The record is a 96-nucleotide RNA from Ottowia flava, which matches "Glycine riboswitch aptamer" in Rfam. From the family's description: This family represents the bacterial glycine riboswitch.
[Rfam]
RNA sequence: CCAGUCAGUUCGGGAGAGACCGACGCUUGCACGAGCGCCGGCGCCGAAGGAGCAACCGCCCCGGAAACUCUCAGGCCAAAGGACCGAACCGACCAU
Numbered sequence: 001c002c003a004g005u006c007a008g009u010u011c012g013g014g015a016g017a018g019a020c021c022g023a024c025g026c027u028u029g030c031a032c033g034a035g036c037g038c039c040g041g042c043g044c045c046g047a048a049g050g051a052g053c054a055a056c057c058g059c060c061c062c063g064g065a066a067a068c069u070c071u072c073a074g075g076c077c078a079a080a081g082g083a084c085c086g087a088a089c090c091g092a093c094c095a096u
Base pairs, nucleotide, nucleotide: 006091008089009088010087011086012085013084020041021040022039043076044075045074046072047071050070051069052068056064057063
The source organism's lineage runs through Bacteria, Pseudomonadati, Betaproteobacteria, Comamonadaceae and Ottowia. Its family is annotated with glycine biosynthetic process in the Gene Ontology.